[Rfam]
RNA sequence: GGGCCAGUGAUGAGAACUCACAUUGUCUUGAAGAGAGAUGAUGACUUAAAAAUCAUUCUAAAUGGGAUUACGCUGGGCCC
Numbered sequence: 001g002g003g004c005c006a007g008u009g010a011u012g013a014g015a016a017c018u019c020a021c022a023u024u025g026u027c028u029u030g031a032a033g034a035g036a037g038a039u040g041a042u043g044a045c046u047u048a049a050a051a052a053u054c055a056u057u058c059u060a061a062a063u064g065g066g067a068u069u070a071c072g073c074u075g076g077g078c079c080c
Stems, first nucleotide, its partner, number of pairs: 001080004005075002008072002